Small nucleolar RNA Z105: a 67-nucleotide RNA from Zizania palustris.
By type it is a C/D-box small nucleolar RNA.

[Rfam]
RNA sequence: UUGGCAUGAUGAGGAAAAUUAAUGUUUUCUGAUCUAUUUGAUGAGAAAAUCCUCCUACUCAUUCUGA
Numbered sequence: 001u002u003g004g005c006a007u008g009a010u011g012a013g014g015a016a017a018a019u020u021a022a023u024g025u026u027u028u029c030u031g032a033u034c035u036a037u038u039u040g041a042u043g044a045g046a047a048a049a050u051c052c053u054c055c056u057a058c059u060c061a062u063u064c065u066g067a
Base pairs, nucleotide, nucleotide: 006062007061008060009059025046026045029040
About this RNA: On this family, see Chen et al., Nucleic Acids Res 2003: "The high diversity of snoRNAs in plants: identification and comparative study of 120 snoRNA genes from Oryza sativa". Its family is annotated with nucleolus and RNA processing in the Gene Ontology. The base pairs follow the family's consensus structure, which was predicted with CMfinder.